[Rfam]
Rfam assigns this 84-nucleotide RNA from Variovorax terrae to the family "SAH (S-adenosyl-L-homocysteine) riboswitch aptamer". The source organism's lineage runs through Bacteria, Pseudomonadota, Betaproteobacteria, Comamonadaceae and Variovorax.
RNA sequence: UAACCCAAGGAGCGUUGCAGCGGAGCCUGUUCAUGGCAGGUCCGUCAGGCUUGGGUGGGUUUACCGCAACGACGCUCACCUUCC
Numbered sequence: 001u002a003a004c005c006c007a008a009g010g011a012g013c014g015u016u017g018c019a020g021c022g023g024a025g026c027c028u029g030u031u032c033a034u035g036g037c038a039g040g041u042c043c044g045u046c047a048g049g050c051u052u053g054g055g056u057g058g059g060u061u062u063a064c065c066g067c068a069a070c071g072a073c074g075c076u077c078a079c080c081u082u083c084c
Base pairs, nucleotide, nucleotide: 003056004055005054006053007052008051021044022043023042024041026039
Rfam 15.1 lists 1,354 matches to the family in 1,132 species. A reference for the family is Wang et al. (2008), "Riboswitches that sense S-adenosylhomocysteine and activate genes involved in coenzyme recycling", Mol Cell.